[Rfam]
RNA sequence: UAUGGCCUAUGAUGACUAAAAGUUUUGCCUACAUUGUCUGAUUAUAAACAAUGAAGAGAAAACCUGAGAUUUCUGAGGCUCUA
Numbered sequence: 001u002a003u004g005g006c007c008u009a010u011g012a013u014g015a016c017u018a019a020a021a022g023u024u025u026u027g028c029c030u031a032c033a034u035u036g037u038c039u040g041a042u043u044a045u046a047a048a049c050a051a052u053g054a055a056g057a058g059a060a061a062a063c064c065u066g067a068g069a070u071u072u073c074u075g076a077g078g079c080u081c082u083a
Stems, first nucleotide, its partner, number of pairs: 001083002004080004
Dot-bracket structure: ((.((((.....................................................................)))).))
The record is an 83-nucleotide sequence from Artemisia annua, which matches "Small nucleolar RNA SNORD34" in Rfam. The family is grouped with related families in Rfam's "SNORD34 clan". Rfam's curators write: snoRNA U34 is found in intron 5 of the ribosomal protein L13a gene in humans. A reference for the family is Galardi et al. (2002), "Purified box C/D snoRNPs are able to reproduce site-specific 2'-O-methylation of target RNA in vitro", Mol Cell Biol.